[Rfam]
L4-Archaeoglobi ribosomal protein leades: a 100-nucleotide RNA from Haloferax mucosum. NCBI's taxonomy places the organism under Archaea, Halobacteria, Haloferacaceae, Haloferax, Haloferax mucosum. The family's RNA type in Rfam is cis-regulatory leader.
RNA sequence: CUGACGACCGCGUUCGGGUCAAUUGCGGAAUGCAACACCCGGUCUCCCUGUUCACCCCUCCGGGGAUGAACGUUUCAAAGGGGGAGCGCGUCGCUGUCAG
Numbered sequence: 001c002u003g004a005c006g007a008c009c010g011c012g013u014u015c016g017g018g019u020c021a022a023u024u025g026c027g028g029a030a031u032g033c034a035a036c037a038c039c040c041g042g043u044c045u046c047c048c049u050g051u052u053c054a055c056c057c058c059u060c061c062g063g064g065g066a067u068g069a070a071c072g073u074u075u076c077a078a079a080g081g082g083g084g085a086g087c088g089c090g091u092c093g094c095u096g097u098c099a100g
Base pairs, nucleotide, nucleotide: 001100002099003098004097005096009090010089011088012087013086015041016040017039018038023035024034025033026032027031043085044084045083046082047081048072050071051070052069053068
Description:
For this family Rfam cites "Discovery of 20 novel ribosomal leader candidates in bacteria and archaea" (Eckert and Weinberg, BMC Microbiol, 2020).